mir-1388 microRNA precursor family: a 92-nucleotide RNA from Oryzias latipes. NCBI's taxonomy places the organism under Eukaryota, Teleostomi, Acanthomorphata, Ovalentaria, Oryzias. The sequence is in the family's curated seed alignment. Gene Ontology terms of the family: RISC complex and miRNA-mediated post-transcriptional gene silencing.
RNA sequence: UACUGAGUGGUGCUUUCUAGGACUGUCCAACCUGAGAAUGUUGGUUUAAGGCUCAAUCUCAGGUUCGUCAGCCCAUGAAACGCCAACUCGCU
Numbered sequence: 001u002a003c004u005g006a007g008u009g010g011u012g013c014u015u016u017c018u019a020g021g022a023c024u025g026u027c028c029a030a031c032c033u034g035a036g037a038a039u040g041u042u043g044g045u046u047u048a049a050g051g052c053u054c055a056a057u058c059u060c061a062g063g064u065u066c067g068u069c070a071g072c073c074c075a076u077g078a079a080a081c082g083c084c085a086a087c088u089c090g091c092u
Base pairs, nucleotide, nucleotide: 005089006088007087008085009084010083011082012081014080015079016078017077020074021073023071024070025069027067029065030064031063032062033061034060035059036058037057039055040054